[Rfam]
This 227-nucleotide sequence from Cryptobacterium curtum belongs to the Rfam family "raiA RNA".

RNA sequence: CUUUUACGGGCUGUAGUUGCGAAGGUAGUUCCUUCUAUUCCAUGGCAGAUGCGGUCAAAAGGAUCCACGUAAGCCACACCGCAAGGUGUUGGUGAGCACGGCGCAUUCUAGAAGUAAGACGCACCGUCCGCGUUAUGCAGCAGAGGGCUGCACGGGCGAGAGGGUGAUGGUGCAAGCUCAACCCCAGUGCGCGAGUGUGGGGGCGAAGACUAGGUCAGCCGUAAGAG
Numbered sequence: 001c002u003u004u005u006a007c008g009g010g011c012u013g014u015a016g017u018u019g020c021g022a023a024g025g026u027a028g029u030u031c032c033u034u035c036u037a038u039u040c041c042a043u044g045g046c047a048g049a050u051g052c053g054g055u056c057a058a059a060a061g062g063a064u065c066c067a068c069g070u071a072a073g074c075c076a077c078a079c080c081g082c083a084a085g086g087u088g089u090u091g092g093u094g095a096g097c098a099c100g101g102c103g104c105a106u107u108c109u110a111g112a113a114g115u116a117a118g119a120c121g122c123a124c125c126g127u128c129c130g131c132g133u134u135a136u137g138c139a140g141c142a143g144a145g146g147g148c149u150g151c152a153c154g155g156g157c158g159a160g161a162g163g164g165u166g167a168u169g170g171u172g173c174a175a176g177c178u179c180a181a182c183c184c185c186a187g188u189g190c191g192c193g194a195g196u197g198u199g200g201g202g203g204c205g206a207a208g209a210c211u212a213g214g215u216c217a218g219c220c221g222u223a224a225g226a227g
Stems, first nucleotide, its partner, number of pairs: 001227009011218003014212005042198003045055001048107006064101002072093001074091001076089003099205001120191005125158005162184004170177002

Rfam's curators put it in the seed alignment.